[Rfam]
RNA sequence: GCGGAUAUGAUGAAAUAGGUAGACAUGACAUAUUUAGGAUAUGUUGGGUAACUUUGCAGGUUCGAAUCCUGCUAUCCGUA
Number, nucleotide and partner (000 for none) at each position: 001g079002c078003g077004g076005a075006u074007a073008u000009g000010a026011u025012g024013a000014a000015a000016u000017a000018g000019g000020u000021a000022g000023a000024c012025a011026u010027g000028a044029c043030a042031u041032a040033u000034u000035u000036a000037g000038g000039a000040u032041a031042u030043g029044u028045u000046g000047g000048g000049u000050a000051a000052c000053u000054u000055u000056g072057c071058a070059g069060g068061u000062u000063c000064g000065a000066a000067u000068c060069c059070u058071g057072c056073u007074a006075u005076c004077c003078g002079u001080a000

This 80-nucleotide sequence from Lasius niger belongs to the Rfam family "tRNA". A search with the family's covariance model found it, with a score of 53 bits. Transfer RNA (tRNA) molecules are approximately 80 nucleotides in length. Rfam links the family to the GO term triplet codon-amino acid adaptor activity. Pairs were carried over by alignment from the consensus structure, which is taken from published work. By type it is a transfer RNA. NCBI's taxonomy places the organism under Eukaryota, Bilateria, Eumetabola, Apocrita, Lasius.